Shown here is a 73-nucleotide RNA sequence from Grallaria varia, a member of the family "mir-30 microRNA precursor family". From the family's description: This family consists of the mammalian microRNA (miRNA) precursor mir-30a. A reference for the family is Lagos-Quintana et al. (2001), "Identification of novel genes coding for small expressed RNAs", Science. Rfam 15.1 lists 3,879 matches to the family in 647 species.

RNA sequence: UUAGUUCCUGUAAACAUCCUACACUCAGCUAUAACAAGUGGUGGGCUGGGGAGUGGAUGUUUACUUCAACUGA
Numbered sequence: 001u002u003a004g005u006u007c008c009u010g011u012a013a014a015c016a017u018c019c020u021a022c023a024c025u026c027a028g029c030u031a032u033a034a035c036a037a038g039u040g041g042u043g044g045g046c047u048g049g050g051g052a053g054u055g056g057a058u059g060u061u062u063a064c065u066u067c068a069a070c071u072g073a
Stems, first nucleotide, its partner, number of pairs: 002072005010064010021054002024050007

Pairs were carried over by alignment from the consensus structure, which was predicted with PFOLD.